The record is a 74-nucleotide RNA sequence from Aquarana catesbeiana, which matches "mir-192/215 microRNA precursor family" in Rfam. This family represents the human microRNA (miRNA) precursors mir-192 and mir-215.
[Rfam]
RNA sequence: CCAGGAAGAUGACCUAUGAAUUGACAGCCAGUUAUUAUUCAUGUGUCUGUCAUUUCUGUAGGCCAAUAUUCUGG
Numbered sequence: 001c002c003a004g005g006a007a008g009a010u011g012a013c014c015u016a017u018g019a020a021u022u023g024a025c026a027g028c029c030a031g032u033u034a035u036u037a038u039u040c041a042u043g044u045g046u047c048u049g050u051c052a053u054u055u056c057u058g059u060a061g062g063c064c065a066a067u068a069u070u071c072u073g074g
Stems, first nucleotide, its partner, number of pairs: 001074006008067001010065002013062004018056003022052006029045002
Rfam 15.1 lists 810 matches to the family in 628 species. A reference for the family is Lagos-Quintana et al. (2003), "New microRNAs from mouse and human", RNA.